[Rfam]
RNA sequence: CGAGUUGGCCAGACAAUCGCUGCUUACUCGUUGUACCUUUCGGGGUAGACGGAGUAAGGGGAGGAAAGUCCGGGCUCCAAAGAGCAGGGUGCCAGAUAACGUCUGGGCGGCGAAAGCCGACGACAAGUGCAGCAGAGAGAAGACCGCCUAAGUACGCAAGUACCGGUAAGGGUGAAAGGGUGCGGUAAGAGCGCACCGGGCCACUGGUAACAGUUGGCAGCAGGGUAAACUCCACCCGGAGCAAGACCAAAUAGGGUUCCUGACGGCGUGGCUCGCGUUGGAACCGGGUAGGUUGCUUGAGCUAUGGGGCGACUCAUAGCCUAGACGAAUGAUUGUCGUGUCUUAGACAUAACAGAACCCGGCUUAUACGGCCAACUCACUAA
Numbered sequence: 001c002g003a004g005u006u007g008g009c010c011a012g013a014c015a016a017u018c019g020c021u022g023c024u025u026a027c028u029c030g031u032u033g034u035a036c037c038u039u040u041c042g043g044g045g046u047a048g049a050c051g052g053a054g055u056a057a058g059g060g061g062a063g064g065a066a067a068g069u070c071c072g073g074g075c076u077c078c079a080a081a082g083a084g085c086a087g088g089g090u091g092c093c094a095g096a097u098a099a100c101g102u103c104u105g106g107g108c109g110g111c112g113a114a115a116g117c118c119g120a121c122g123a124c125a126a127g128u129g130c131a132g133c134a135g136a137g138a139g140a141a142g143a144c145c146g147c148c149u150a151a152g153u154a155c156g157c158a159a160g161u162a163c164c165g166g167u168a169a170g171g172g173u174g175a176a177a178g179g180g181u182g183c184g185g186u187a188a189g190a191g192c193g194c195a196c197c198g199g200g201c202c203a204c205u206g207g208u209a210a211c212a213g214u215u216g217g218c219a220g221c222a223g224g225g226u227a228a229a230c231u232c233c234a235c236c237c238g239g240a241g242c243a244a245g246a247c248c249a250a251a252u253a254g255g256g257u258u259c260c261u262g263a264c265g266g267c268g269u270g271g272c273u274c275g276c277g278u279u280g281g282a283a284c285c286g287g288g289u290a291g292g293u294u295g296c297u298u299g300a301g302c303u304a305u306g307g308g309g310c311g312a313c314u315c316a317u318a319g320c321c322u323a324g325a326c327g328a329a330u331g332a333u334u335g336u337c338g339u340g341u342c343u344u345a346g347a348c349a350u351a352a353c354a355g356a357a358c359c360c361g362g363c364u365u366a367u368a369c370g371g372c373c374a375a376c377u378c379a380c381u382a383a
Base pairs, nucleotide, nucleotide: 002378003377004376005375006374007373008372009371010370011367012337013336014335015334016333017332018331020061021060023058024057025056026055027054028053066365067364068363070362071361072360073359074358075241076240077239078238082274083273084272085271087237088236089235090234091233092106093105094104095103096102107121108119109118110117111116122232123231127230128229129226130225144171145170146167147166148165152163153162154161155160179197180196181195182194183193184192198221200218201217202216203215204213205212206211245294246293247292248291255285256284257283258282259281260280265279266278267277268276269275301320302319303318304317305316306315307314308313

Shown here is a 383-nucleotide RNA from Thalassotalea sp. HSM 43, a member of the family "Bacterial RNase P class A". Lineage of the source: Bacteria > Pseudomonadota > Gammaproteobacteria > Alteromonadales > Thalassotalea. Clan: RNaseP clan. The match comes from Rfam's covariance-model search (322 bits). Gene Ontology terms of the family: tRNA processing, dimeric ribonuclease P complex and ribonuclease P activity.